Shown here is a 205-nucleotide sequence from Oryza sativa, a member of the family "MIR812 microRNA precursor family". Gene Ontology terms of the family: RISC complex and miRNA-mediated post-transcriptional gene silencing.
[Rfam]
Nucleotides: 205
Base pairs, nucleotide, nucleotide: 028178030176032174033172034171035170036169037168039166041164042163043162044161045160046159047158048157049156050155
Number, partner (000 for none) and nucleotide at each position: 001000a002000a003000a004000a005000a006000g007000g008000c009000a010000a011000a012000c013000c014000c015000u016000g017000g018000g019000u020000u021000u022000c023000c024000g025000u026000g027000c028178c029000a030176a031000c032174g033172u034171u035170u036169g037168a038000c039166u040000c041164u042163c043162c044161g045160u046159c047158u048157u049156a050155u051000a052000u053000g054000a055000a056000a057000u058000u059000u060000u061000u062000u063000u064000a065000u066000a067000a068000u069000u070000a071000g072000u073000a074000u075000u076000u077000u078000c079000a080000u081000g082000g083000u084000u085000g086000u087000u088000a089000g090000a091000u092000g093000a094000u095000a096000a097000a098000a099000c100000a101000u102000g103000a104000u105000u106000a107000a108000u109000a110000c111000u112000u113000u114000a115000u116000g117000c118000g119000u120000g121000a122000c123000u124000u125000a126000u127000c128000u129000u130000u131000u132000u133000a134000a135000u136000u137000u138000u139000u140000u141000a142000a143000u144000a145000u146000u147000u148000u149000u150000u151000u152000c153000a154000a155050a156049u157048a158047a159046g160045a161044c162043g163042g164041a165000c166039g167000u168037u169036c170035a171034a172033a173000c174032c175000u176030u177000g178028g179000a180000c181000a182000c183000g184000g185000a186000a187000a188000c189000u190000a191000g192000g193000g194000u195000u196000u197000g198000c199000c200000u201000u202000u203000u204000u205000u

The source organism's lineage runs through Eukaryota, commelinids, Oryzeae, Oryza and Oryza sativa.